[Rfam]
RNA: mir-503 microRNA precursor family
Organism: Loxodonta africana
RNA sequence: UGCCCUAGCAGCGGGAACAGUACUGCAGCGGGCGCUCGGCUCUGGAGUAUUGUUGCCGCUGCCCGGGCA
Number, nucleotide and partner (000 for none) at each position: 001u000002g068003c067004c066005c065006u000007a000008g062009c061010a060011g059012c058013g057014g056015g000016a054017a053018c052019a051020g050021u049022a000023c047024u046025g000026c044027a043028g042029c000030g000031g041032g040033c000034g000035c000036u000037c000038g000039g000040c032041u031042c028043u027044g026045g000046a024047g023048u000049a021050u020051u019052g018053u017054u016055g000056c014057c013058g012059c011060u010061g009062c008063c000064c000065g005066g004067g003068c002069a000